About this RNA
This 119-nucleotide RNA from Beijerinckia indica belongs to the Rfam family "TPP riboswitch aptamer (THI element)". Pairs were carried over by alignment from the consensus structure, which is taken from published work. The source organism's lineage runs through Bacteria, Pseudomonadota, Beijerinckia, Beijerinckia indica and Beijerinckia indica subsp. indica.
[Rfam]
RNA sequence: GCGACAGACCAGGGGAGCCCCGGCAGGGGGCUGAGAGGCUGGCAUGCCCAUAAGGCGCCCGGCGACCCUUUGAACCUGAUCCAGUUCACGCUGGCGGAGGGAGGGCGAUCGAAAUGUUC
Numbered sequence: 001g002c003g004a005c006a007g008a009c010c011a012g013g014g015g016a017g018c019c020c021c022g023g024c025a026g027g028g029g030g031c032u033g034a035g036a037g038g039c040u041g042g043c044a045u046g047c048c049c050a051u052a053a054g055g056c057g058c059c060c061g062g063c064g065a066c067c068c069u070u071u072g073a074a075c076c077u078g079a080u081c082c083a084g085u086u087c088a089c090g091c092u093g094g095c096g097g098a099g100g101g102a103g104g105g106c107g108a109u110c111g112a113a114a115u116g117u118u119c
Stems, first nucleotide, its partner, number of pairs: 007106001009104002011069004017031005038063005075100003081094004